The family of this 305-nucleotide sequence from Nicotiana attenuata is "Plant signal recognition particle RNA". NCBI's taxonomy places the organism under Eukaryota, Streptophytina, Spermatophyta, asterids, Nicotiana. The base pairs follow the family's consensus structure, which is taken from published work. It scores 252 bits against the family's covariance model.
RNA sequence: GCCGAGCCUUGUAACGUGGGCUUGUGACCCAAGUGGGGGCAAUAGUGUGGUGGGACGUUGGGUUAUUUCUGAAGGCUGGGCUUUGGGUGGCUAAUGUCCGGCCUGCCCUAUCCAAGCAUGGAGUUGAGUCAUGUGGCCCAAACGUAAGUAUGGGUUGCUUGGCUCCUAGAGUGGGGCGGACUGCGUGAGGCUGGUUUCACAGAGCAACGAACAGCUCCCGCUCCGUGCAGUGGAAGGAUAACGGGCCGGUGCUCUCCAAGUCCAACAAAAACCUAAUGGGCUUCUGCAAUUAAACCACCACUUUU
Numbered sequence: 001g002c003c004g005a006g007c008c009u010u011g012u013a014a015c016g017u018g019g020g021c022u023u024g025u026g027a028c029c030c031a032a033g034u035g036g037g038g039g040c041a042a043u044a045g046u047g048u049g050g051u052g053g054g055a056c057g058u059u060g061g062g063u064u065a066u067u068u069c070u071g072a073a074g075g076c077u078g079g080g081c082u083u084u085g086g087g088u089g090g091c092u093a094a095u096g097u098c099c100g101g102c103c104u105g106c107c108c109u110a111u112c113c114a115a116g117c118a119u120g121g122a123g124u125u126g127a128g129u130c131a132u133g134u135g136g137c138c139c140a141a142a143c144g145u146a147a148g149u150a151u152g153g154g155u156u157g158c159u160u161g162g163c164u165c166c167u168a169g170a171g172u173g174g175g176g177c178g179g180a181c182u183g184c185g186u187g188a189g190g191c192u193g194g195u196u197u198c199a200c201a202g203a204g205c206a207a208c209g210a211a212c213a214g215c216u217c218c219c220g221c222u223c224c225g226u227g228c229a230g231u232g233g234a235a236g237g238a239u240a241a242c243g244g245g246c247c248g249g250u251g252c253u254c255u256c257c258a259a260g261u262c263c264a265a266c267a268a269a270a271a272c273c274u275a276a277u278g279g280g281c282u283u284c285u286g287c288a289a290u291u292a293a294a295c296c297a298c299c300a301c302u303u304u305u
Stems, first nucleotide, its partner, number of pairs: 001040003004023006028037003044304002047301007057291001058289003061285002066280001068279002073274003077270001078263006085256002089253002092251002098249008107237002111234004116228009126165006133158008142149002166171001173218005182211001184209003191202003